[Rfam]
RNA: RNase MRP
RNA sequence: GGGCAUUCAGAAGACUUGCUAUCUGGGCUACACACGAGGACCUGGUUUCUCAACAACCGCCCAGGGGAAAGUCCCCGGACUCCCGGCAGAAAGUGCCCUGGCUAAACCCAGCGUCGACCCGCGGCUCACCCUGAUCAAGCUAAGAGGUUCAUUGAACGGAGCUUGGUGAUCGCAGGUCGACUUUGUCAGCGUGUCUAGUAAUGCAAGUGUGUGCGCGCGCAUCAACAGAACGGGGCUCAUUCUCGGAAUGCA
Numbered sequence: 001g002g003g004c005a006u007u008c009a010g011a012a013g014a015c016u017u018g019c020u021a022u023c024u025g026g027g028c029u030a031c032a033c034a035c036g037a038g039g040a041c042c043u044g045g046u047u048u049c050u051c052a053a054c055a056a057c058c059g060c061c062c063a064g065g066g067g068a069a070a071g072u073c074c075c076c077g078g079a080c081u082c083c084c085g086g087c088a089g090a091a092a093g094u095g096c097c098c099u100g101g102c103u104a105a106a107c108c109c110a111g112c113g114u115c116g117a118c119c120c121g122c123g124g125c126u127c128a129c130c131c132u133g134a135u136c137a138a139g140c141u142a143a144g145a146g147g148u149u150c151a152u153u154g155a156a157c158g159g160a161g162c163u164u165g166g167u168g169a170u171c172g173c174a175g176g177u178c179g180a181c182u183u184u185g186u187c188a189g190c191g192u193g194u195c196u197a198g199u200a201a202u203g204c205a206a207g208u209g210u211g212u213g214c215g216c217g218c219g220c221a222u223c224a225a226c227a228g229a230a231c232g233g234g235g236c237u238c239a240u241u242c243u244c245g246g247a248a249u250g251c252a
Stems, first nucleotide, its partner, number of pairs: 003251006010244002014208006022065007036051005070237002073235004085097004098111004114180006121173002126169004137164004147157004211222004